RNA: U1 spliceosomal RNA
RNA sequence: AUACUAACCUGGACGGGUCAAUGGGUGAUCAAGAAUGCCCAUGACCUAGACGAGUGACCUCCAUUGCACUUAGGAGGGUUGCUGGUCUAUGGCACACCCAAGUAGUGGAGCCAUGUCACAAUUUUUGGUAGUGGGGCCUGCAUUCGUGCGGCCCCUUU
Number, nucleotide and partner (000 for none) at each position: 001a000002u000003a000004c000005u000006a000007a000008c000009c000010u000011g000012g117013a116014c115015g047016g046017g045018u044019c043020a042021a000022u041023g040024g039025g038026u037027g000028a000029u000030c000031a000032a000033g000034a000035a000036u000037g026038c025039c024040c023041a022042u020043g019044a018045c017046c016047u015048a088049g087050a086051c000052g000053a000054g082055u081056g080057a000058c078059c077060u076061c074062c073063a000064u000065u000066g000067c000068a000069c000070u000071u000072a000073g062074g061075a000076g060077g059078g058079u000080u056081g055082c054083u000084g000085g000086u050087c049088u048089a000090u113091g112092g111093c110094a000095c107096a000097c105098c000099c000100a000101a000102g000103u000104a000105g097106u000107g095108g000109a000110g093111c092112c091113a090114u000115g014116u013117c012118a000119c000120a000121a000122u000123u000124u000125u000126u000127g000128g000129u000130a000131g000132u000133g156134g155135g154136g153137c000138c000139u150140g149141c148142a147143u000144u000145c000146g000147u142148g141149c140150g139151g000152c000153c136154c135155c134156u133157u000158u000